[Rfam]
RNA sequence: AAGGUCCUAGCUUAAUUAAAGUAUCUGAGUUGCAUUCAGAGGAUGCAAGUUAAUAUCUUGCGGGCUUUA
Numbered sequence: 001a002a003g004g005u006c007c008u009a010g011c012u013u014a015a016u017u018a019a020a021g022u023a024u025c026u027g028a029g030u031u032g033c034a035u036u037c038a039g040a041g042g043a044u045g046c047a048a049g050u051u052a053a054u055a056u057c058u059u060g061c062g063g064g065c066u067u068u069a
Base pairs, nucleotide, nucleotide: 001068002067003066004065005064006063007062010022011021012020013019024040025039026038027037028036045061046060047059048058049057
RNA: tRNA